[Rfam]
RNA: mir-7 microRNA precursor family
Organism: Esox lucius
RNA sequence: AGUCCUGGAUGCUAUGGAAGACUAGUGAUUUUGUUGUUGUAAAUAAAGAACCCAGACAACAAGUCAUAGUCUACCUCAGUGACCAGAACA
Numbered sequence: 001a002g003u004c005c006u007g008g009a010u011g012c013u014a015u016g017g018a019a020g021a022c023u024a025g026u027g028a029u030u031u032u033g034u035u036g037u038u039g040u041a042a043a044u045a046a047a048g049a050a051c052c053c054a055g056a057c058a059a060c061a062a063g064u065c066a067u068a069g070u071c072u073a074c075c076u077c078a079g080u081g082a083c084c085a086g087a088a089c090a
Stems, first nucleotide, its partner, number of pairs: 002089002005086004010081004016075002019072005025067007033060006